RNA sequence: UCAUGGCUGUUCCUCUCACUGCAUGGAGUCUUAGGUGGUGGGAUCAUCAUAUAUCUAAGCUGAUAUGUCUUCCCUCAGGGCACCAUGAGGAUGGCUUGGCUGUUUUCUAGUGCCUUCUGAUUUUUGUGGAGUCACACAGUU
Numbered sequence: 001u002c003a004u005g006g007c008u009g010u011u012c013c014u015c016u017c018a019c020u021g022c023a024u025g026g027a028g029u030c031u032u033a034g035g036u037g038g039u040g041g042g043a044u045c046a047u048c049a050u051a052u053a054u055c056u057a058a059g060c061u062g063a064u065a066u067g068u069c070u071u072c073c074c075u076c077a078g079g080g081c082a083c084c085a086u087g088a089g090g091a092u093g094g095c096u097u098g099g100c101u102g103u104u105u106u107c108u109a110g111u112g113c114c115u116u117c118u119g120a121u122u123u124u125u126g127u128g129g130a131g132u133c134a135c136a137c138a139g140u141u
Base pairs, nucleotide, nucleotide: 001049003047004046005045014043015042016041017040018039020037021036022035062133063132064131066129075120076119077118078117079116080113081112082111083110089105090104091103092102093101

The family of this 141-nucleotide RNA from Moschus moschiferus is "Small nucleolar RNA SNORA79". ACA65 (SNORA79) is a member of the H/ACA class of snoRNAs that guide the sites of modification of uridines to pseudouridines. This snoRNA was identified by computational screening and its expression in mouse experimentally verified by Northern blot and primer extension analysis. Gene Ontology terms of the family: nucleolus and RNA processing.